[Rfam]
RNA sequence: GCCUUACCAACGCUGCGUUUCUUUGCUCUCACACAGACGCCGAGUCUCGCACUCGGUUGUCCUACUUGCAAAUGAGAAAUUCGGAGUAAUCUUCACCUCUUUUUGUUAUCUCGCUCCGCGAGCUCUGUCAUCACUGCCCGUGAGGGCCUGGCGUGAUUCACGUCUGCAUUUGGCAUCAGAAAACCCAGGACCCAUAAGCAAAGAUACUGCUCUUCGGAGCGGUGUCUGCGUGAUCUGGUGCUCCUAUGGAAGUCGGUGCGAAGAUAGUGUGCCUCGGUCUAACCGGGGUGACACCAUAGUGCAAUACGCAGCGUGCUCGACCUUGAGUAGCUUCGGCGAAAGAGCGAGGGUAUCAUUCGAUUCCGAUUACUCUGGUGAGGC
Numbered sequence: 001g002c003c004u005u006a007c008c009a010a011c012g013c014u015g016c017g018u019u020u021c022u023u024u025g026c027u028c029u030c031a032c033a034c035a036g037a038c039g040c041c042g043a044g045u046c047u048c049g050c051a052c053u054c055g056g057u058u059g060u061c062c063u064a065c066u067u068g069c070a071a072a073u074g075a076g077a078a079a080u081u082c083g084g085a086g087u088a089a090u091c092u093u094c095a096c097c098u099c100u101u102u103u104u105g106u107u108a109u110c111u112c113g114c115u116c117c118g119c120g121a122g123c124u125c126u127g128u129c130a131u132c133a134c135u136g137c138c139c140g141u142g143a144g145g146g147c148c149u150g151g152c153g154u155g156a157u158u159c160a161c162g163u164c165u166g167c168a169u170u171u172g173g174c175a176u177c178a179g180a181a182a183a184c185c186c187a188g189g190a191c192c193c194a195u196a197a198g199c200a201a202a203g204a205u206a207c208u209g210c211u212c213u214u215c216g217g218a219g220c221g222g223u224g225u226c227u228g229c230g231u232g233a234u235c236u237g238g239u240g241c242u243c244c245u246a247u248g249g250a251a252g253u254c255g256g257u258g259c260g261a262a263g264a265u266a267g268u269g270u271g272c273c274u275c276g277g278u279c280u281a282a283c284c285g286g287g288g289u290g291a292c293a294c295c296a297u298a299g300u301g302c303a304a305u306a307c308g309c310a311g312c313g314u315g316c317u318c319g320a321c322c323u324u325g326a327g328u329a330g331c332u333u334c335g336g337c338g339a340a341a342g343a344g345c346g347a348g349g350g351u352a353u354c355a356u357u358c359g360a361u362u363c364c365g366a367u368u369a370c371u372c373u374g375g376u377g378a379g380g381c
Stems, first nucleotide, its partner, number of pairs: 001381004007375003012312007022072004040056006082365005091263004136147004150164005166259004171255002187245003313353006
RNA: Nuclear RNase P
Organism: Clohesyomyces aquaticus